[Rfam]
mir-83 microRNA precursor family: a 77-nucleotide sequence from Nippostrongylus brasiliensis.

RNA sequence: UGUCUGAUAAUCCUGAAUUUAUUUGCGAGCUGGACGACAUGAUGAUCUAGCACCAUGUAAAUUCAGCAUUUGAAUUC
Number, nucleotide and partner (000 for none) at each position: 001u000002g000003u000004c000005u000006g000007a000008u000009a000010a000011u000012c000013c066014u065015g064016a063017a062018u061019u060020u059021a058022u057023u000024u055025g054026c000027g053028a000029g000030c050031u049032g000033g047034a046035c044036g043037a000038c000039a000040u000041g000042a000043u036044g035045a000046u034047c033048u000049a031050g030051c000052a000053c027054c025055a024056u000057g022058u021059a020060a019061a018062u017063u016064c015065a014066g013067c000068a000069u000070u000071u000072g000073a000074a000075u000076u000077c000

The source organism's lineage runs through Eukaryota, Protostomia, Ecdysozoa, Rhabditomorpha and Nippostrongylus.